[Rfam]
RNA sequence: AGCGAUAAACGAAUUUCGUAAUAAACAUUGCGGACGUGGGGGCAGUACCCACCACCUCCACCAAAAAAAUAUGGGGGUGAACUAGGAUCGACGGAUGUCUAAAAGCUAUUCUUUUGCUCGGUAUUGUUCCACCGUAAAGGGCUAUUUUAUAAUUGCAAAUGAUAAAUUUGCUCUUGCUGCUUAA
Numbered sequence: 001a002g003c004g005a006u007a008a009a010c011g012a013a014u015u016u017c018g019u020a021a022u023a024a025a026c027a028u029u030g031c032g033g034a035c036g037u038g039g040g041g042g043c044a045g046u047a048c049c050c051a052c053c054a055c056c057u058c059c060a061c062c063a064a065a066a067a068a069a070u071a072u073g074g075g076g077g078u079g080a081a082c083u084a085g086g087a088u089c090g091a092c093g094g095a096u097g098u099c100u101a102a103a104a105g106c107u108a109u110u111c112u113u114u115u116g117c118u119c120g121g122u123a124u125u126g127u128u129c130c131a132c133c134g135u136a137a138a139g140g141g142c143u144a145u146u147u148u149a150u151a152a153u154u155g156c157a158a159a160u161g162a163u164a165a166a167u168u169u170g171c172u173c174u175u176g177c178u179g180c181u182u183a184a
Stems, first nucleotide, its partner, number of pairs: 001118005014108001017105001026097003031093002036052005053079007119134004
Rfam assigns this 184-nucleotide sequence from Pelagibacterales bacterium SAG-MED15 to the family "permuted transfer-messenger RNA". Lineage of the source: Bacteria > Pseudomonadati > Pseudomonadota > Alphaproteobacteria > Candidatus Pelagibacterales. It scores 135 bits against the family's covariance model. From the family's description: Bacterial tmRNA, also known as 10Sa RNA or SsrA, is named for its dual tRNA and mRNA-like properties. Its role is to liberate the mRNA from a stalled ribosome. To accomplish this part of the tmRNA is used as a reading frame that ends in a translation stop signal. The broken mRNA is replaced in the ribosome by the tmRNA and translation of the tmRNA leads to addition of a proteolysis tag to the incomplete protein enabling recognition by a protease. Recently a number of permuted tmRNA genes have been found encoded in two parts. tmRNAs have been identified in eubacteria and some chloroplasts but are absent from archaeal and eukaryote nuclear genomes.